[Rfam]
RNA sequence: UCAGGAGUGGGAAUGAUGACCUGGUUGGACUAGCGUCUCUGAGUUUCUCUGAGGAUCUCUGAAACCACCUGAUCCAUUCUUG
Numbered sequence: 001u002c003a004g005g006a007g008u009g010g011g012a013a014u015g016a017u018g019a020c021c022u023g024g025u026u027g028g029a030c031u032a033g034c035g036u037c038u039c040u041g042a043g044u045u046u047c048u049c050u051g052a053g054g055a056u057c058u059c060u061g062a063a064a065c066c067a068c069c070u071g072a073u074c075c076a077u078u079c080u081u082g
Stems, first nucleotide, its partner, number of pairs: 003081004008076003019073001021071001023069003027065001032058002036054004041049003
RNA: Small nucleolar RNA ZL8